The family of this 162-nucleotide sequence from Thalictrum thalictroides is "small nucleolar RNA snoR143". A reference for the family is Chen and Wu (2009), "Mining small RNA sequencing data: a new approach to identify small nucleolar RNAs in Arabidopsis", Nucleic Acids Res. Rfam 15.1 lists 660 matches to the family in 212 species. The match comes from Rfam's covariance-model search (90 bits). Pairs were carried over by alignment from the consensus structure, which was predicted with RNAalifold. Gene Ontology terms of the family: nucleolus and RNA processing. Lineage of the source: Eukaryota > Viridiplantae > Mesangiospermae > Ranunculales > Thalictrum.
[Rfam]
RNA sequence: UUGCAUUCAUUUCAUAGGCAAUACUAAUCUAUAUUGUGGAGCCUUGAACUAUGGUGCAUAAAUUAAAAGCUGUUCUACCAGCAGCGGCCAGACAACCGUAGAGAUGAAUCCACAGAUUAUCAGCUUUAUACGCUGCUCAUCUACUUAAUUCAUCUUACAAAC
Number, nucleotide and partner (000 for none) at each position: 001u000002u058003g057004c056005a055006u054007u000008c000009a050010u000011u000012u048013c000014a000015u000016a044017g043018g042019c041020a000021a000022u038023a037024c036025u000026a035027a000028u000029c000030u000031a000032u000033a000034u000035u026036g024037u023038g022039g000040a000041g019042c018043c017044u016045u000046g000047a000048a012049c000050u009051a000052u000053g000054g006055u005056g004057c003058a002059u000060a000061a000062a000063u000064u000065a000066a000067a000068a000069g000070c000071u000072g000073u000074u000075c000076u000077a000078c000079c000080a000081g000082c000083a000084g000085c000086g000087g000088c000089c000090a000091g000092a000093c000094a000095a000096c000097c000098g000099u000100a000101g156102a155103g154104a153105u152106g151107a150108a149109u000110c000111c000112a000113c000114a000115g000116a000117u000118u139119a137120u000121c135122a134123g133124c000125u000126u000127u000128a000129u000130a000131c000132g000133c123134u122135g121136c000137u119138c000139a118140u000141c000142u000143a000144c000145u000146u000147a000148a000149u108150u107151c106152a105153u104154c103155u102156u101157a000158c000159a000160a000161a000162c000